[Rfam]
RNA sequence: AGAGCUUAGCUAAUUGGUGAGCAUUGAUCCCUCUUAUAUGUUGUUCACAGUGGCUAAGUUCAGU
Numbered sequence: 001a002g003a004g005c006u007u008a009g010c011u012a013a014u015u016g017g018u019g020a021g022c023a024u025u026g027a028u029c030c031c032u033c034u035u036a037u038a039u040g041u042u043g044u045u046c047a048c049a050g051u052g053g054c055u056a057a058g059u060u061c062a063g064u
Stems, first nucleotide, its partner, number of pairs: 002061010017048007
Dot-bracket structure: .((((((((((.....(((((((..................)))))))...))))))))))...
Notes
A member of the RNA family "mir-27 microRNA precursor family" from Salmo salar, 64 nucleotides long. Its family is annotated with RISC complex and miRNA-mediated post-transcriptional gene silencing in the Gene Ontology. The sequence is in the family's curated seed alignment. Lineage of the source: Eukaryota > Opisthokonta > Deuterostomia > Actinopterygii > Salmo. On this family, see Chen et al., Genes Dev 2005: "The developmental miRNA profiles of zebrafish as determined by small RNA cloning".